[Rfam]
The family of this 98-nucleotide RNA from Sphingomonas lenta is "Glycine riboswitch aptamer". Rfam describes the family as follows. This family represents the bacterial glycine riboswitch. Glycine riboswitches usually consist of two metabolite-binding aptamers domains with similar structures in tandem. The aptamers cooperatively bind glycine to regulate the expression of downstream genes. In Bacillus subtilis, this riboswitch is found upstream of the gcvT operon which controls glycine degradation. Taxonomically the source falls in Sphingomonas (Bacteria, Pseudomonadati, Pseudomonadota, Sphingomonadales).

RNA sequence: UCGACACUCUGGAAAGCGCUCGGCCUUCGGCCGGGCCACCGAAGGGGUAAGCCGGCCGGCCGGUGAAAGCUCUCAGGUUCCGUGACAGAGGGGGAACU
Numbered sequence: 001u002c003g004a005c006a007c008u009c010u011g012g013a014a015a016g017c018g019c020u021c022g023g024c025c026u027u028c029g030g031c032c033g034g035g036c037c038a039c040c041g042a043a044g045g046g047g048u049a050a051g052c053c054g055g056c057c058g059g060c061c062g063g064u065g066a067a068a069g070c071u072c073u074c075a076g077g078u079u080c081c082g083u084g085a086c087a088g089a090g091g092g093g094g095a096a097c098u
Stems, first nucleotide, its partner, number of pairs: 005092001007090005018036004038078003041074002045072003051064002